Small nucleolar RNA SNORA74: a 201-nucleotide RNA sequence from Xenopus tropicalis. It scores 102 bits against the family's covariance model. Rfam 15.1 lists 1,348 matches to the family in 628 species. Gene Ontology terms of the family: nucleolus and RNA processing. Taxonomically the source falls in Silurana (Eukaryota, Bilateria, Deuterostomia, Vertebrata). The base pairs follow the family's consensus structure, which was predicted with PFOLD. By type it is an H/ACA-box small nucleolar RNA.

[Rfam]
RNA sequence: CCCAGCAGUUGUCAGCUGUCUGGCACUUAUCCAUGCCUGUUAUGGUGUUACACUGCUGGUAGAUAAAGUCACUGCCCCUUAUGCCAAGUGCCACUGUUACUGUUCUGGUUACAUGUCACUUGCAUUGGGCAGUGCCAGGCUUCCUCGAGAGUGCGCUGAACAUUGGUUUUAAAUGUUAGUGCUAGUCUGGAAGCACACAUG
Numbered sequence: 001c002c003c004a005g006c007a008g009u010u011g012u013c014a015g016c017u018g019u020c021u022g023g024c025a026c027u028u029a030u031c032c033a034u035g036c037c038u039g040u041u042a043u044g045g046u047g048u049u050a051c052a053c054u055g056c057u058g059g060u061a062g063a064u065a066a067a068g069u070c071a072c073u074g075c076c077c078c079u080u081a082u083g084c085c086a087a088g089u090g091c092c093a094c095u096g097u098u099a100c101u102g103u104u105c106u107g108g109u110u111a112c113a114u115g116u117c118a119c120u121u122g123c124a125u126u127g128g129g130c131a132g133u134g135c136c137a138g139g140c141u142u143c144c145u146c147g148a149g150a151g152u153g154c155g156c157u158g159a160a161c162a163u164u165g166g167u168u169u170u171a172a173a174u175g176u177u178a179g180u181g182c183u184a185g186u187c188u189g190g191a192a193g194c195a196c197a198c199a200u201g
Base pairs, nucleotide, nucleotide: 002059003058004057005056006055007054008053009052011051012050015046016045017044018043019042020039022037023036024035070134071133072132073131074130075129076128077127081125082124083123084122088119089118090117092115095113096112097111099109100108101107139194140193141192142191143190144189153182154181155180157178158177160176161175162174163173164172